[Rfam]
RNA sequence: UACGGUUAAGGUCCCGAGAGGAUUCGAAAUUCGAAGAUGCCUUGUAACCGAUUUUUUAAAGGGGGACUUCUAUUAUG
Numbered sequence: 001u002a003c004g005g006u007u008a009a010g011g012u013c014c015c016g017a018g019a020g021g022a023u024u025c026g027a028a029a030u031u032c033g034a035a036g037a038u039g040c041c042u043u044g045u046a047a048c049c050g051a052u053u054u055u056u057u058a059a060a061g062g063g064g065g066a067c068u069u070c071u072a073u074u075a076u077g
Stems, first nucleotide, its partner, number of pairs: 011067005018043004023035005048062002
The record is a 77-nucleotide RNA sequence from Lactobacillus iners, which matches "SAM-III riboswitch aptamer (SMK box)" in Rfam. A reference for the family is Fuchs et al. (2007), "S-adenosylmethionine directly inhibits binding of 30S ribosomal subunits to the SMK box translational riboswitch RNA", Proc Natl Acad Sci U S A. The organism belongs to Lactobacillus iners, within Bacteria.